[Rfam]
RNA sequence: CCCCUGAGUCCCCAGUGUAGCCCCAUAUGAGCUUGCAGUAUUUUCCUUGUAUGAUCAGGCCCAUUGCUGGUGGCGCUGCUGGCCUGGAGCCUGAGAGGAUUAUGAAAACAGGUCAGACGAAGUGUGGCUCAGGACUGGGG
Numbered sequence: 001c002c003c004c005u006g007a008g009u010c011c012c013c014a015g016u017g018u019a020g021c022c023c024c025a026u027a028u029g030a031g032c033u034u035g036c037a038g039u040a041u042u043u044u045c046c047u048u049g050u051a052u053g054a055u056c057a058g059g060c061c062c063a064u065u066g067c068u069g070g071u072g073g074c075g076c077u078g079c080u081g082g083c084c085u086g087g088a089g090c091c092u093g094a095g096a097g098g099a100u101u102a103u104g105a106a107a108a109c110a111g112g113u114c115a116g117a118c119g120a121a122g123u124g125u126g127g128c129u130c131a132g133g134a135c136u137g138g139g140g
Stems, first nucleotide, its partner, number of pairs: 002140002005138001007136005020128003024124001055094006061087002066083007
RNA: small Cajal body-specific RNA 17